[Rfam]
RNA sequence: GCUGAAUGAUGAUAUCCCACUAACUGAGCAGUCAGUAGUUGGUCCUUUGGUUGCAUAUGAUGCGAUAAUUGUUUCAAGACGGGACUGAUGGCAGC
Numbered sequence: 001g002c003u004g005a006a007u008g009a010u011g012a013u014a015u016c017c018c019a020c021u022a023a024c025u026g027a028g029c030a031g032u033c034a035g036u037a038g039u040u041g042g043u044c045c046u047u048u049g050g051u052u053g054c055a056u057a058u059g060a061u062g063c064g065a066u067a068a069u070u071g072u073u074u075c076a077a078g079a080c081g082g083g084a085c086u087g088a089u090g091g092c093a094g095c
Stems, first nucleotide, its partner, number of pairs: 001092004
Record summary
A member of the RNA family "Small nucleolar RNA SNORD21", 95 nucleotides long. The sequence is in the family's curated seed alignment. Pairs were carried over by alignment from the consensus structure, which was predicted with PFOLD. Rfam classes the family as a C/D-box small nucleolar RNA. Rfam 15.1 lists 566 matches to the family in 536 species.